A member of the RNA family "mir-8799 microRNA precursor family" from Vulpes vulpes, 91 nucleotides long. Rfam 15.1 lists 20,638 matches to the family in 5 species. Its family is annotated with RISC complex and miRNA-mediated post-transcriptional gene silencing in the Gene Ontology.

RNA sequence: GGGGGGAGGUCGGAUCCUGGGCUGUGUCCCCGGCGCCCUGUGCUCCGGGGCCUGCGCUGUUGGCUUCAUGCUCCCGGCCACGCAGCCGCCU
Numbered sequence: 001g002g003g004g005g006g007a008g009g010u011c012g013g014a015u016c017c018u019g020g021g022c023u024g025u026g027u028c029c030c031c032g033g034c035g036c037c038c039u040g041u042g043c044u045c046c047g048g049g050g051c052c053u054g055c056g057c058u059g060u061u062g063g064c065u066u067c068a069u070g071c072u073c074c075c076g077g078c079c080a081c082g083c084a085g086c087c088g089c090c091u
Base pairs, nucleotide, nucleotide: 001091002090003089005087006086009083010082012079013078016077017076019074020073021072023070024069025068026067028063030062031059032058033057034056035055036054040052042051043050044049